[Rfam]
Shown here is a 423-nucleotide RNA from Verrucomicrobia bacterium SCGC AG-212-E04, a member of the family "Bacterial RNase P class A". Rfam describes the family as follows. Ribonuclease P (RNase P) is a ubiquitous endoribonuclease, found in archaea, bacteria and eukarya as well as chloroplasts and mitochondria. The family's RNA type in Rfam is ribozyme. The source organism's lineage runs through Bacteria, Pseudomonadati and Verrucomicrobiota.
RNA sequence: AGCGACUGAUUGAUGACCGCUGCCGGAGAAAUCGAAAGGUUUCGCCCGGGAGAGGAAAGUCCGAACACCACAAGGCAACGCGCCGCGUAGAAUGCGCGGGGACGGUCGGCGAAAGCCGGUCGUGACAGACAGUGUCACAGAGAACAUACCGCCGCCGGUCGCAAGGCCGGCGGUAAGGGUGAAAAGGCGGGGUAAGAGCCCACCGCCCGGCGCGCAAGCGACGGGGCACGACAAACCUCGCGUGGUGCAAGACAGAACAGAGGGUCCGCGCCGCCUGCGCCCGGUCCGCAAGGAUUGGAACCCUCGGGUAUUAGUCGCACCCCCUUCGCGGGGGCCGCAGCCUUUACCGGCGGCGGCAGAGAAAUGGUCAUCCGGCGGCCUUCGGGUCGCCGACAGAAUUCGGCUUAGGAUCGGUCACCAAAA
Numbered sequence: 001a002g003c004g005a006c007u008g009a010u011u012g013a014u015g016a017c018c019g020c021u022g023c024c025g026g027a028g029a030a031a032u033c034g035a036a037a038g039g040u041u042u043c044g045c046c047c048g049g050g051a052g053a054g055g056a057a058a059g060u061c062c063g064a065a066c067a068c069c070a071c072a073a074g075g076c077a078a079c080g081c082g083c084c085g086c087g088u089a090g091a092a093u094g095c096g097c098g099g100g101g102a103c104g105g106u107c108g109g110c111g112a113a114a115g116c117c118g119g120u121c122g123u124g125a126c127a128g129a130c131a132g133u134g135u136c137a138c139a140g141a142g143a144a145c146a147u148a149c150c151g152c153c154g155c156c157g158g159u160c161g162c163a164a165g166g167c168c169g170g171c172g173g174u175a176a177g178g179g180u181g182a183a184a185a186g187g188c189g190g191g192g193u194a195a196g197a198g199c200c201c202a203c204c205g206c207c208c209g210g211c212g213c214g215c216a217a218g219c220g221a222c223g224g225g226g227c228a229c230g231a232c233a234a235a236c237c238u239c240g241c242g243u244g245g246u247g248c249a250a251g252a253c254a255g256a257a258c259a260g261a262g263g264g265u266c267c268g269c270g271c272c273g274c275c276u277g278c279g280c281c282c283g284g285u286c287c288g289c290a291a292g293g294a295u296u297g298g299a300a301c302c303c304u305c306g307g308g309u310a311u312u313a314g315u316c317g318c319a320c321c322c323c324c325u326u327c328g329c330g331g332g333g334g335c336c337g338c339a340g341c342c343u344u345u346a347c348c349g350g351c352g353g354c355g356g357c358a359g360a361g362a363a364a365u366g367g368u369c370a371u372c373c374g375g376c377g378g379c380c381u382u383c384g385g386g387u388c389g390c391c392g393a394c395a396g397a398a399u400u401c402g403g404c405u406u407a408g409g410a411u412c413g414g415u416c417a418c419c420a421a422a423a
Base pairs, nucleotide, nucleotide: 002418004416005415006414007413008412009411010410011408012372013371014370015369016368017367018366020052021051023049024048025047026046057406058405059404061403062402063401064400065399066247067246068245069244075289076288078243079242080241081240082239083099084098085097086096087095100126102123103122104121105120106119107118108117109116110115127238128237132236133235134232135231136230149178150177151174152173153172154171155170156169157168158167159166186204187203189201190200191199205227206225207224208223209222211220212219213218251316252315253314254311260305261304262303263302264301265300282297283296284295285294286293